The record is a 149-nucleotide sequence from Oceanobacillus sp. J11TS1, which matches "Group II catalytic intron D1-D4-3" in Rfam.
A reference for the family is Bonen and Vogel (2001), "The ins and outs of group II introns", Trends Genet.

RNA sequence: UCUGGGGUGACCCAGAAUCUGAAGGAAGUCGGCGGCAAAUCUCCGGCACUAGGAACACGAACUUCAUAGAAGGCUAGAUGCAUUUGGAUGAGACUGCCAAAGGAUGCAUCGAGUAAAUGAAGAGGGGACAUGGAGAGGAAGAGCGUGUU
Numbered sequence: 001u002c003u004g005g006g007g008u009g010a011c012c013c014a015g016a017a018u019c020u021g022a023a024g025g026a027a028g029u030c031g032g033c034g035g036c037a038a039a040u041c042u043c044c045g046g047c048a049c050u051a052g053g054a055a056c057a058c059g060a061a062c063u064u065c066a067u068a069g070a071a072g073g074c075u076a077g078a079u080g081c082a083u084u085u086g087g088a089u090g091a092g093a094c095u096g097c098c099a100a101a102g103g104a105u106g107c108a109u110c111g112a113g114u115a116a117a118u119g120a121a122g123a124g125g126g127g128a129c130a131u132g133g134a135g136a137g138g139a140a141g142a143g144c145g146u147g148u149u
Base pairs, nucleotide, nucleotide: 001016002015003014004013005012006011028149030147031146036141040136041135042134043133044132045131047126049124050123062122063121064120065119066118067117073114074113075112077110078109079108080107081106082105083104084103085102
It scores 98 bits against the family's covariance model. Group II introns are found in rRNA, tRNA and mRNA of organelles in fungi, plants and protists, and also in mRNA in bacteria.